[Rfam]
RNA sequence: UCCGUGGUGACGCGGAAUCUGAAGGAAGCUGGAACCACAACUCGGACUCGACGAACAGAAAUCGGAUACAAGGCCAUUCACGUUGGGCAACCCGGCAAUGGACGGGGACGCCCGAUCCUCAUCCGGAAACGGGAGUGGUAGAUCCGGCGAGGCCCGAGGGAAACAAGC
Numbered sequence: 001u002c003c004g005u006g007g008u009g010a011c012g013c014g015g016a017a018u019c020u021g022a023a024g025g026a027a028g029c030u031g032g033a034a035c036c037a038c039a040a041c042u043c044g045g046a047c048u049c050g051a052c053g054a055a056c057a058g059a060a061a062u063c064g065g066a067u068a069c070a071a072g073g074c075c076a077u078u079c080a081c082g083u084u085g086g087g088c089a090a091c092c093c094g095g096c097a098a099u100g101g102a103c104g105g106g107g108a109c110g111c112c113c114g115a116u117c118c119u120c121a122u123c124c125g126g127a128a129a130c131g132g133g134a135g136u137g138g139u140a141g142a143u144c145c146g147g148c149g150a151g152g153c154c155c156g157a158g159g160g161a162a163a164c165a166a167g168c
Base pairs, nucleotide, nucleotide: 001016002015003014004013005012006011032168041158042157043156044155045154047151048150049149050148062147063146064145065144066143067142073139074138075137077135078134079133081131082130083129085113086112087111088110091106092105093104094103

Source information: The family of this 168-nucleotide RNA sequence from Planctomycetales bacterium 10988 is "Group II catalytic intron D1-D4-3". On this family, see Bonen and Vogel, Trends Genet 2001: "The ins and outs of group II introns". The base pairs follow the family's consensus structure.